Ascomycota telomerase RNA: a 151-nucleotide part of an RNA from Hyphodiscus hymeniophilus. By type it is a non-coding RNA gene. For this family Rfam cites "The common ancestral core of vertebrate and fungal telomerase RNAs" (Qi et al., Nucleic Acids Res, 2013). The base pairs follow the family's consensus structure. The match comes from Rfam's covariance-model search (177 bits). The family has 4 seed sequences and 475 matches in Rfam 15.1.

Nucleotides: 151
Stems, first nucleotide, its partner, number of pairs: 007033002011030004016026002019023001037054002039050004070145003073140002076138003079134003097129002099126004107121006
Number, partner (000 for none) and nucleotide at each position: 001000c002000a003000c004000u005000c006000a007033g008032u009000c010000u011030u012029c013028u014027a015000u016026c017025u018000u019023u020000a021000c022000g023019a024000u025017a026016g027014u028013a029012g030011a031000u032008a033007c034000c035000c036000u037054u038053c039050c040049u041048c042047u043000c044000c045000c046000g047042a048041g049040a050039g051000a052000u053038g054037a055000c056000a057000a058000g059000c060000g061000g062000u063000u064000u065000u066000u067000g068000u069000u070145g071144a072143u073140g074139u075000c076138u077137u078136u079134u080133g081132u082000c083000c084000g085000u086000u087000c088000u089000u090000u091000c092000a093000c094000a095000a096000g097129c098128c099126c100125u101124g102123c103000u104000a105000c106000c107121u108120u109119c110118c111117u112116c113000a114000g115000g116112g117111a118110g119109g120108g121107g122000a123102g124101c125100a126099g127000a128098g129097g130000a131000a132081a133080c134079a135000u136078a137077a138076a139074a140073c141000u142000u143072a144071u145070c146000u147000c148000a149000u150000a151000g